[Rfam]
RNA sequence: AAUAAAUAUGGGUAAACUAAUUGAAAAGUUAGGGCACAAAGUCACAGAGCUAAAAAGAAAUCUUCAAGCUGGCUGGACUGCUGUU
Dot-bracket structure: ...........((...((((((....))))))...))..((((.((((((....(((....)))...)))..)))))))......
RNA: c-di-GMP-I riboswitch aptamer
Organism: Candidatus Izimoplasma sp. ZiA1